A member of the RNA family "Metazoan signal recognition particle RNA" from Dipodomys ordii, 287 nucleotides long. A reference for the family is Batey et al. (2000), "Crystal structure of the ribonucleoprotein core of the signal recognition particle", Science. A search with the family's covariance model found it, with a score of 163 bits. The family's consensus secondary structure is taken from published work. The organism belongs to Dipodomys, within Eukaryota.

RNA sequence: GCCGGGCGCGGUGGCGCGCGUCUGUAAUCCCAGCUACUCGGAAGGCUGAGCCCGGAGGAUCGCUUGAGUCCAGGAGUUCUGGGCUGCAGUGCGCUAUGCCGAUCGGGUGUCCGCACUAAGUUCGGCAUCAAUAUGGUGACCUCCCGGGAGCGGGGGGACACCAGGUUGCCUAAGGAGGGGUGAACCGGCCCAGGUCGGAAACGGAGCAGGUCAAAACUCCCGUGCUGAUCAGAGAUGAGCCAGAAAUGUUAACUCAGAUUUUCAAGGGCUUUAUAAAUUCCGAGUGU
Numbered sequence: 001g002c003c004g005g006g007c008g009c010g011g012u013g014g015c016g017c018g019c020g021u022c023u024g025u026a027a028u029c030c031c032a033g034c035u036a037c038u039c040g041g042a043a044g045g046c047u048g049a050g051c052c053c054g055g056a057g058g059a060u061c062g063c064u065u066g067a068g069u070c071c072a073g074g075a076g077u078u079c080u081g082g083g084c085u086g087c088a089g090u091g092c093g094c095u096a097u098g099c100c101g102a103u104c105g106g107g108u109g110u111c112c113g114c115a116c117u118a119a120g121u122u123c124g125g126c127a128u129c130a131a132u133a134u135g136g137u138g139a140c141c142u143c144c145c146g147g148g149a150g151c152g153g154g155g156g157g158a159c160a161c162c163a164g165g166u167u168g169c170c171u172a173a174g175g176a177g178g179g180g181u182g183a184a185c186c187g188g189c190c191c192a193g194g195u196c197g198g199a200a201a202c203g204g205a206g207c208a209g210g211u212c213a214a215a216a217c218u219c220c221c222g223u224g225c226u227g228a229u230c231a232g233a234g235a236u237g238a239g240c241c242a243g244a245a246a247u248g249u250u251a252a253c254u255c256a257g258a259u260u261u262u263c264a265a266g267g268g269c270u271u272u273a274u275a276a277a278u279u280c281c282g283a284g285u286g287u
Base pairs, nucleotide, nucleotide: 001046002045003044004023005022006021007020008019009018010017028043030041048287050285051284053282054281055280056279057278064275066271067270068269069268070267071266074263081260082259084257085256086255088254089253090252093250095248096247097246104243106241107240111239114237115236117234120230122228123227124226125225126224127223128222129168130167131166132165134163135162136161137160138159140157141156142155143154144153145152146151169175170174177220178219179218180217181216187212188211189210190209195204196203197202